[Rfam]
RNA sequence: UUUUUAAAUUAAUAAAGCACUCAUAUAAUCGUGGAGAUAUGGUCCACAAGUUUCUACCGAAUAGCCGUAAAUUAUUCGACUAUGAGUGGGGUUAAAUGUUCG
Numbered sequence: 001u002u003u004u005u006a007a008a009u010u011a012a013u014a015a016a017g018c019a020c021u022c023a024u025a026u027a028a029u030c031g032u033g034g035a036g037a038u039a040u041g042g043u044c045c046a047c048a049a050g051u052u053u054c055u056a057c058c059g060a061a062u063a064g065c066c067g068u069a070a071a072u073u074a075u076u077c078g079a080c081u082a083u084g085a086g087u088g089g090g091g092u093u094a095a096a097u098g099u100u101c102g
Base pairs, nucleotide, nucleotide: 018088019087020086021085022084023083024082025081029049031047032046033045034044035043058078059077060076061075062074063073064072